[Rfam]
RNA: Manganese Mn2+ riboswitch aptamer (yybP-ykoY)
Organism: Marinobacter sp. AC-23
RNA sequence: CUUCAGGGGAGUAGCCUCCGCAUCCGGUGUCCGGAUCGGACGGUAGUCAACAUACUUGGGGCUCAUCCCCAUGGCUAUCGUGUUUCACUUGGUUUCGGUGAAAUU
Number, nucleotide and partner (000 for none) at each position: 001c000002u000003u000004c000005a000006g000007g000008g000009g000010a000011g000012u000013a000014g000015c000016c000017u000018c000019c000020g036021c000022a000023u000024c000025c000026g000027g000028u000029g000030u000031c000032c000033g000034g000035a000036u020037c000038g000039g000040a081041c080042g079043g078044u077045a076046g075047u074048c073049a072050a000051c000052a000053u000054a000055c000056u000057u071058g070059g069060g068061g067062c000063u000064c000065a000066u000067c061068c060069c059070c058071a057072u049073g048074g047075c046076u045077a044078u043079c042080g041081u040082g104083u103084u102085u101086c100087a099088c098089u000090u000091g000092g000093u000094u000095u000096c000097g000098g088099u087100g086101a085102a084103a083104u082105u000